[Rfam]
RNA sequence: AUCAGAGCGGUAAAUCCGUUAUGAAUUGUUUAAGAUGUUCCCUUCCAUCGGUAGGCUAUAACCUUAACGUUAUAAUUCAUAAGGUUCGCUCUGUU
Numbered sequence: 001a002u003c004a005g006a007g008c009g010g011u012a013a014a015u016c017c018g019u020u021a022u023g024a025a026u027u028g029u030u031u032a033a034g035a036u037g038u039u040c041c042c043u044u045c046c047a048u049c050g051g052u053a054g055g056c057u058a059u060a061a062c063c064u065u066a067a068c069g070u071u072a073u074a075a076u077u078c079a080u081a082a083g084g085u086u087c088g089c090u091c092u093g094u095u
Stems, first nucleotide, its partner, number of pairs: 001095001003093006022079005029074001030067005036061001041055003045051002